Record summary: A member of the RNA family "mir-338 microRNA precursor family" from Salmo salar, 60 nucleotides long. It is one of the family's seed sequences. The family's consensus secondary structure was predicted with RNAalifold. Lineage of the source: Eukaryota > Osteoglossocephalai > Protacanthopterygii > Salmonidae > Salmo. Gene Ontology terms of the family: RISC complex and miRNA-mediated post-transcriptional gene silencing. Rfam 15.1 lists 1,231 matches to the family in 632 species.
[Rfam]
RNA sequence: AACAACAUCCUGGUGCUGCCUGAGUGACUCUCACCAACUCCAGCAUCAGUGAUUUUGUUG
Numbered sequence: 001a002a003c004a005a006c007a008u009c010c011u012g013g014u015g016c017u018g019c020c021u022g023a024g025u026g027a028c029u030c031u032c033a034c035c036a037a038c039u040c041c042a043g044c045a046u047c048a049g050u051g052a053u054u055u056u057g058u059u060g
Stems, first nucleotide, its partner, number of pairs: 001059005007053003010049009